[Rfam]
RNA: Bacterial RNase P class A
Organism: Oceanicaulis sp. HTCC2633
RNA sequence: UCAGAGGGCCGGGCGGCCGCUGCUGCGAGAGGGGAAACCCUGCAGGAGAGGAAAGUCCGGGCUCCAUGGAGGCAAGGCGCCGGGGAAAUCCCGGCGGGCCGGUUCGCCGGUUCAGGGACAGCGCCGCAGAAAUCAGACCGCCGCACUCAGGUGCGGCAAGGGUGAAACGGUGGGGUAAGAGCCCACCGCCCCGACCGCAAGGAAGGGGGCACGGCAAGCCCCGCCUGGAGCAAGACCGAAUAGGGACCCGCGCUGUGCUUCGGCGCAGCAGACGCGCCUCCGCGUCGAGGUCCGGGUAGGUUGCUGGAGGCGUCGUGCAAGCGGCGUCCUAGAGGAAUGGUCGCCCCCGGUCAUCACAUGGGAUGACAUGGGACAGAACCCGGCUUACAGGCCCUCUGAUCCU
Numbered sequence: 001u002c003a004g005a006g007g008g009c010c011g012g013g014c015g016g017c018c019g020c021u022g023c024u025g026c027g028a029g030a031g032g033g034g035a036a037a038c039c040c041u042g043c044a045g046g047a048g049a050g051g052a053a054a055g056u057c058c059g060g061g062c063u064c065c066a067u068g069g070a071g072g073c074a075a076g077g078c079g080c081c082g083g084g085g086a087a088a089u090c091c092c093g094g095c096g097g098g099c100c101g102g103u104u105c106g107c108c109g110g111u112u113c114a115g116g117g118a119c120a121g122c123g124c125c126g127c128a129g130a131a132a133u134c135a136g137a138c139c140g141c142c143g144c145a146c147u148c149a150g151g152u153g154c155g156g157c158a159a160g161g162g163u164g165a166a167a168c169g170g171u172g173g174g175g176u177a178a179g180a181g182c183c184c185a186c187c188g189c190c191c192c193g194a195c196c197g198c199a200a201g202g203a204a205g206g207g208g209g210c211a212c213g214g215c216a217a218g219c220c221c222c223g224c225c226u227g228g229a230g231c232a233a234g235a236c237c238g239a240a241u242a243g244g245g246a247c248c249c250g251c252g253c254u255g256u257g258c259u260u261c262g263g264c265g266c267a268g269c270a271g272a273c274g275c276g277c278c279u280c281c282g283c284g285u286c287g288a289g290g291u292c293c294g295g296g297u298a299g300g301u302u303g304c305u306g307g308a309g310g311c312g313u314c315g316u317g318c319a320a321g322c323g324g325c326g327u328c329c330u331a332g333a334g335g336a337a338u339g340g341u342c343g344c345c346c347c348c349g350g351u352c353a354u355c356a357c358a359u360g361g362g363a364u365g366a367c368a369u370g371g372g373a374c375a376g377a378a379c380c381c382g383g384c385u386u387a388c389a390g391g392c393c394c395u396c397u398g399a400u401c402c403u
Stems, first nucleotide, its partner, number of pairs: 001399010011388001012345007020048002023045005053386003057383005062230004071279002075226005080094005095115001096113007116221002121219002123215003138161002140157007169187006188210001189208004195202002234302004244293005271286005309328008